A member of the RNA family "Group I catalytic intron" from Talaromyces stipitatus, 319 nucleotides long. The base pairs follow the family's consensus structure, which is taken from published work. Gene Ontology term of the family: Group I intron splicing. Lineage of the source: Eukaryota > Opisthokonta > Ascomycota > saccharomyceta > Talaromyces stipitatus. Group I catalytic introns are large self-splicing ribozymes. They catalyse their own excision from mRNA, tRNA and rRNA precursors in a wide range of organisms. The core secondary structure consists of 9 paired regions (P1-P9). These fold to essentially two domains - the P4-P6 domain (formed from the stacking of P5, P4, P6 and P6a helices) and the P3-P9 domain (formed from the P8, P3, P7 and P9 helices). The secondary structure mark-up for this family represents only this conserved core. Group I catalytic introns often have long ORFs inserted in loop regions. The window size for this search is chosen to minimise search time and catch the small examples. A larger window size will find more matches. For this family Rfam cites "Self-splicing of group I introns" (Cech, Annu Rev Biochem, 1990).
RNA sequence: CUACCGACGUGAGGGUCAAGUGGCGCUGAACUGCGACCGCUAGUGGGGGGUGUCUAUUCCCCCCGCGACACUGCCAAAUUGCGGGAACCUCCUAAAGCCUCUGCUACCGCGGCUCACCGAAAGGUUGAGUGCAGCACCAGGGUAAUGACCUCGGGGAUGGUAACAACGUAGAGGAUGCAACAAUGGACGAUCCGCAGCCAAGCUCUACGCCCAGGAGACCCCUGGGUAUGGGUGCAGUUCAACGACUAGAUGGUAGUGGGCUUCCCGGUGACCGCUGGGGGGCUUAAGAUAUAGUCUGAUGACCGGCUGAAAGGCCUGG
Number, nucleotide and partner (000 for none) at each position: 001c023002u022003a021004c000005c000006g000007a000008c000009g000010u000011g000012a000013g000014g000015g000016u000017c000018a000019a000020g000021u003022g002023g001024c000025g000026c000027u000028g000029a000030a000031c039032u000033g000034c000035g000036a000037c000038c000039g031040c000041u000042a000043g000044u000045g000046g000047g000048g000049g000050g000051u000052g000053u000054c000055u000056a000057u000058u000059c000060c000061c000062c000063c000064c000065g000066c000067g000068a000069c258070a257071c256072u255073g254074c000075c252076a251077a000078a000079u000080u196081g195082c194083g193084g192085g191086a000087a000088c000089c000090u187091c186092c185093u000094a000095a000096a000097g000098c000099c000100u000101c000102u000103g000104c000105u000106a000107c000108c000109g000110c000111g000112g000113c000114u000115c000116a000117c000118c000119g000120a000121a000122a000123g000124g000125u000126u000127g000128a000129g000130u000131g000132c000133a000134g000135c000136a000137c000138c000139a000140g000141g000142g000143u000144a000145a000146u000147g000148a000149c000150c000151u000152c000153g000154g000155g000156g000157a000158u000159g000160g000161u000162a000163a000164c000165a000166a000167c000168g000169u000170a000171g000172a000173g000174g000175a000176u000177g000178c000179a000180a000181c000182a000183a000184u000185g092186g091187a090188c000189g000190a000191u085192c084193c083194g082195c081196a080197g238198c237199c000200a000201a000202g233203c232204u231205c230206u000207a000208c000209g000210c226211c225212c224213a223214g222215g000216a000217g000218a000219c000220c000221c000222c214223u213224g212225g211226g210227u000228a000229u000230g205231g204232g203233u202234g000235c000236a000237g198238u197239u000240c000241a000242a297243c000244g296245a295246c294247u293248a292249g000250a000251u076252g075253g000254u073255a072256g071257u070258g069259g000260g283261c282262u281263u280264c279265c278266c277267g276268g275269u000270g000271a000272c000273c000274g000275c268276u267277g266278g265279g264280g263281g262282g261283c260284u000285u000286a000287a000288g000289a000290u000291a000292u248293a247294g246295u245296c244297u242298g000299a000300u000301g000302a000303c000304c000305g316306g315307c314308u313309g000310a000311a000312a000313g308314g307315c306316c305317u000318g000319g000